Rfam assigns this 76-nucleotide RNA from Microcebus murinus to the family "mir-320 microRNA precursor family". Gene Ontology terms of the family: negative regulation of gene expression, cellular response to glucose stimulus and long-term synaptic potentiation. A search with the family's covariance model found it, with a score of 85 bits. A reference for the family is Berezikov et al. (2006), "Many novel mammalian microRNA candidates identified by extensive cloning and RAKE analysis", Genome Res. Rfam 15.1 lists 659 matches to the family in 129 species.
RNA sequence: AUAUAAAUUGGCCUUCUCUUCCCAGUUCUUCCAGGAGUUGGGAAAAGCUGGGUUGAGAGGGCAAAGAAAAAAGAAA
Dot-bracket structure: .............(((((..(((((...((((.(....).))))...)))))..))))).................